[Rfam]
RNA sequence: UGCUGAUGAUGAUAUAUCCUAAGGCUUGUUUCUCAAAACAUUCGCAGUGGCCGCCUAAGUGCUUUCGCCUUUCGCCGGGCUUGAGAGUAUAUGCUGCUUUUAUCCUUCCUUGGAUGUCUGAGGCU
Numbered sequence: 001u002g003c004u005g006a007u008g009a010u011g012a013u014a015u016a017u018c019c020u021a022a023g024g025c026u027u028g029u030u031u032c033u034c035a036a037a038a039c040a041u042u043c044g045c046a047g048u049g050g051c052c053g054c055c056u057a058a059g060u061g062c063u064u065u066c067g068c069c070u071u072u073c074g075c076c077g078g079g080c081u082u083g084a085g086a087g088u089a090u091a092u093g094c095u096g097c098u099u100u101u102a103u104c105c106u107u108c109c110u111u112g113g114a115u116g117u118c119u120g121a122g123g124c125u
Stems, first nucleotide, its partner, number of pairs: 002124003061088006
Small nucleolar RNA SNORD14: a 125-nucleotide RNA from Anisodus acutangulus.
Rfam's curators write: U14 small nucleolar RNA (U14 snoRNA) is required for early cleavages of eukaryotic precursor rRNAs. In yeasts, this molecule possess a stem-loop region (known as the Y-domain) which is essential for function.
The source organism's lineage runs through Eukaryota, Spermatophyta, Mesangiospermae, Solanaceae and Anisodus.
Rfam classes the family as a C/D-box small nucleolar RNA.
The literature on the family includes a 1996 paper in Nucleic Acids Res by Samarsky et al., "An essential domain in Saccharomyces cerevisiae U14 snoRNA is absent in vertebrates, but conserved in other yeasts".
Pairs were carried over by alignment from the consensus structure, which was predicted with PFOLD.
Gene Ontology terms of the family: nucleolus and RNA processing.